U4atac minor spliceosomal RNA: a 128-nucleotide RNA sequence from Pipistrellus kuhlii. The match comes from Rfam's covariance-model search (57 bits). Gene Ontology terms of the family: pre-mRNA 5'-splice site binding, mRNA 5'-splice site recognition and spliceosomal tri-snRNP complex assembly. From the family's description: U4atac is an essential component of the minor U12-type spliceosome complex which is required for removal of the rarer class of eukaryotic introns (AT-AC, U12-type). The family has 61 seed sequences and 1,648 matches in Rfam 15.1. For this family Rfam cites "Evolution of spliceosomal snRNA genes in metazoan animals" (Marz et al., J Mol Evol, 2008). Rfam classes the family as a spliceosomal small nuclear RNA.
RNA sequence: AUCUUCCUUUUCUUGGGGUUGUGCUUCUGUCCAUUGAGCACACAGUGAGGGCAGUACUGUCGAUGCCUAAACAACACACUCGUAUUGACUAGAACUCUGCUUCACCUGGGUAUGAUUUUUUUGGGGGA
Numbered sequence: 001a002u003c004u005u006c007c008u009u010u011u012c013u014u015g016g017g018g019u020u021g022u023g024c025u026u027c028u029g030u031c032c033a034u035u036g037a038g039c040a041c042a043c044a045g046u047g048a049g050g051g052c053a054g055u056a057c058u059g060u061c062g063a064u065g066c067c068u069a070a071a072c073a074a075c076a077c078a079c080u081c082g083u084a085u086u087g088a089c090u091a092g093a094a095c096u097c098u099g100c101u102u103c104a105c106c107u108g109g110g111u112a113u114g115a116u117u118u119u120u121u122u123g124g125g126g127g128a
Stems, first nucleotide, its partner, number of pairs: 006018004021060003027054006038046002082113005090104001092102002095099001